[Rfam]
RNA: Bacterial small signal recognition particle RNA
Organism: Enterococcus sulfureus
RNA sequence: AGGCUAGGACAAUGGAGGCCUUGUGAAUUGUGUCAGGUCUGGAAGGAAGCAGCACUAAGCAGGUGUCUUCAUGUGUCUGAUUACAUA
Numbered sequence: 001a002g003g004c005u006a007g008g009a010c011a012a013u014g015g016a017g018g019c020c021u022u023g024u025g026a027a028u029u030g031u032g033u034c035a036g037g038u039c040u041g042g043a044a045g046g047a048a049g050c051a052g053c054a055c056u057a058a059g060c061a062g063g064u065g066u067c068u069u070c071a072u073g074u075g076u077c078u079g080a081u082u083a084c085a086u087a
Stems, first nucleotide, its partner, number of pairs: 001086001003084001005080001007078003010073001012072006020063005030055004038047003